[Rfam]
RNA sequence: GUUACAAGCCGGGUUAUCGUUUCCGCCACAGGCGGGGAAGGAAAGUCCGGACAGCACAGAGCAAUGCACCGGUGAAUAGCCGGGCCCUGUUUAAAACAGGAAUAGAGAGUGCCACAGAAAAUAACUGUCCCGUACGGGACGAGGGUGAAAACGUGGGGUAAGAGCUCACGGUGUUUAUUAGUAAUAAUAAACACGGGUAAACCUUGCAUGCUGAAAUGCCAUGUAAACCCCGCUGAGGAUUAUCUUUGGGUGAUCCCGGUAAGCUGCUCGUUUACUAUCCCGUCUUUGACGGGGUGGCGGGAAGGGUAGGCAGAUUGAUUCAUUGAGGUAACUCUUUGAACAGAUAAAUGAUAACCGUCCCGCCCCGAGCGGGAUACAGAAUCCGGCUUACAGGCUUGUAACAUUU
Numbered sequence: 001g002u003u004a005c006a007a008g009c010c011g012g013g014u015u016a017u018c019g020u021u022u023c024c025g026c027c028a029c030a031g032g033c034g035g036g037g038a039a040g041g042a043a044a045g046u047c048c049g050g051a052c053a054g055c056a057c058a059g060a061g062c063a064a065u066g067c068a069c070c071g072g073u074g075a076a077u078a079g080c081c082g083g084g085c086c087c088u089g090u091u092u093a094a095a096a097c098a099g100g101a102a103u104a105g106a107g108a109g110u111g112c113c114a115c116a117g118a119a120a121a122u123a124a125c126u127g128u129c130c131c132g133u134a135c136g137g138g139a140c141g142a143g144g145g146u147g148a149a150a151a152c153g154u155g156g157g158g159u160a161a162g163a164g165c166u167c168a169c170g171g172u173g174u175u176u177a178u179u180a181g182u183a184a185u186a187a188u189a190a191a192c193a194c195g196g197g198u199a200a201a202c203c204u205u206g207c208a209u210g211c212u213g214a215a216a217u218g219c220c221a222u223g224u225a226a227a228c229c230c231c232g233c234u235g236a237g238g239a240u241u242a243u244c245u246u247u248g249g250g251u252g253a254u255c256c257c258g259g260u261a262a263g264c265u266g267c268u269c270g271u272u273u274a275c276u277a278u279c280c281c282g283u284c285u286u287u288g289a290c291g292g293g294g295u296g297g298c299g300g301g302a303a304g305g306g307u308a309g310g311c312a313g314a315u316u317g318a319u320u321c322a323u324u325g326a327g328g329u330a331a332c333u334c335u336u337u338g339a340a341c342a343g344a345u346a347a348a349u350g351a352u353a354a355c356c357g358u359c360c361c362g363c364c365c366c367g368a369g370c371g372g373g374a375u376a377c378a379g380a381a382u383c384c385g386g387c388u389u390a391c392a393g394g395c396u397u398g399u400a401a402c403a404u405u406u
Base pairs, nucleotide, nucleotide: 001402002401003400004399005398006397007396008395009394010393011391012356013355014354015353016352017351018350020038021037022036023035024034025033026032027031043389044388045387047386048385049384050383051382052213053212054211055210060287061286064209065208066207067206068205069083070082071081072080073079084103086100087099088098089097090096091095104204105203109202110201111198112197113196125144126143127140128139129138130137131136152170153169154168155167156166157165172193173192174191175190176189177188178187179186180185217312218311219310220309229301230300231299232298279293280292281291282290283289320339321338322337325334326333327332
RNA: Bacterial RNase P class A
Organism: Niabella ginsenosidivorans